The record is a 73-nucleotide RNA sequence from Neospora caninum, which matches "tRNA" in Rfam. The family's RNA type in Rfam is transfer RNA.

RNA sequence: GGCGACGUGGCCCAAUGGAUAGGGCGUCUGACUUCGGAUCAGAAGGUUGUGGGUUCGAGUCCCAUCGUCGUCA
Numbered sequence: 001g002g003c004g005a006c007g008u009g010g011c012c013c014a015a016u017g018g019a020u021a022g023g024g025c026g027u028c029u030g031a032c033u034u035c036g037g038a039u040c041a042g043a044a045g046g047u048u049g050u051g052g053g054u055u056c057g058a059g060u061c062c063c064a065u066c067g068u069c070g071u072c073a
Stems, first nucleotide, its partner, number of pairs: 001072007010025004027043005049065005